Rfam assigns this 102-nucleotide RNA from Lentibacillus cibarius to the family "Purine riboswitch aptamer". Lineage of the source: Bacteria > Bacilli > Caryophanales > Bacillaceae > Lentibacillus.
RNA sequence: GACAAACAAUAUCAUGUUUUUCAUAUAAUAGCGGGGAUAUGGCCUGCAAGUUUCUACCAGUUUACCGUAAAUAAACUGACUAUGGAAAGCAAGUCCGGUGAC
Numbered sequence: 001g002a003c004a005a006a007c008a009a010u011a012u013c014a015u016g017u018u019u020u021u022c023a024u025a026u027a028a029u030a031g032c033g034g035g036g037a038u039a040u041g042g043c044c045u046g047c048a049a050g051u052u053u054c055u056a057c058c059a060g061u062u063u064a065c066c067g068u069a070a071a072u073a074a075a076c077u078g079a080c081u082a083u084g085g086a087a088a089g090c091a092a093g094u095c096c097g098g099u100g101a102c
Stems, first nucleotide, its partner, number of pairs: 018088008029049001031047005058078007